[Rfam]
RNA sequence: GCCGGUCCUCGGUAGUGGCCCCCGGAACGCAAGGCACCCCGGGUGCUUCGAUCGAAGACCGGC
Numbered sequence: 001g002c003c004g005g006u007c008c009u010c011g012g013u014a015g016u017g018g019c020c021c022c023c024g025g026a027a028c029g030c031a032a033g034g035c036a037c038c039c040c041g042g043g044u045g046c047u048u049c050g051a052u053c054g055a056a057g058a059c060c061g062g063c
Stems, first nucleotide, its partner, number of pairs: 001063007009055005017047003021043005029035001
Shown here is a 63-nucleotide sequence from Streptomyces sp. SDr-06, a member of the family "Actino-pnp RNA".